[Rfam]
serC leader: a 52-nucleotide sequence from Roseinatronobacter bogoriensis. From the family's description: This family is a putative regulatory RNA structure that is found upstream of the serC-serA operon in some alpha-proteobacteria. The final stem of the structure overlaps the ribosome binding site of the serC reading frame. It scores 66 bits against the family's covariance model. For this family Rfam cites "Evidence for a second class of S-adenosylmethionine riboswitches and other regulatory RNA motifs in alpha-proteobacteria" (Corbino et al., Genome Biol, 2005).
RNA sequence: UGUUGGGACACCCUUCCCCAACGAAGGGCAUUUAUCUGGAAGGAUACCAUGU
Number, nucleotide and partner (000 for none) at each position: 001u000002g000003u000004u000005g000006g000007g000008a000009c000010a000011c028012c027013c026014u025015u024016c023017c000018c000019c000020a000021a000022c000023g016024a015025a014026g013027g012028g011029c000030a000031u000032u000033u046034a045035u044036c043037u042038g000039g000040a000041a000042g037043g036044a035045u034046a033047c000048c000049a000050u000051g000052u000